[Rfam]
RNA sequence: UAGUAAUAAUGAGCGCCUGGACCUACGGGUUGACGAGGAUAACAGUUAUCGAAAGAUUCGGCGGGUACUGUUACGGUUAUUGUGGAUCGAAAGAGAAUAGACAAAAGCAACAUCAUAAUGCUACAAAAACUAUUCUCAACACACUA
Numbered sequence: 001u002a003g004u005a006a007u008a009a010u011g012a013g014c015g016c017c018u019g020g021a022c023c024u025a026c027g028g029g030u031u032g033a034c035g036a037g038g039a040u041a042a043c044a045g046u047u048a049u050c051g052a053a054a055g056a057u058u059c060g061g062c063g064g065g066u067a068c069u070g071u072u073a074c075g076g077u078u079a080u081u082g083u084g085g086a087u088c089g090a091a092a093g094a095g096a097a098u099a100g101a102c103a104a105a106a107g108c109a110a111c112a113u114c115a116u117a118a119u120g121c122u123a124c125a126a127a128a129a130c131u132a133u134u135c136u137c138a139a140c141a142c143a144c145u146a
Stems, first nucleotide, its partner, number of pairs: 020031004040073005049061004074089005094136007107121003113118001

Background
glmS glucosamine-6-phosphate activated ribozyme aptamer: a 146-nucleotide RNA from Hoskinsella hominis. The source organism's lineage runs through Bacteria, Bacillati, Erysipelotrichia, Erysipelotrichales and Hoskinsella. Rfam's curators write: This entry contains a glucosamine-6-phosphate activated ribozyme that is found in the mRNA for GlmS. GlmS is an enzyme that uses fructose-6-phosphate and glutamine to generate glucosamine-6-phosphate. A search with the family's covariance model found it, with a score of 67 bits.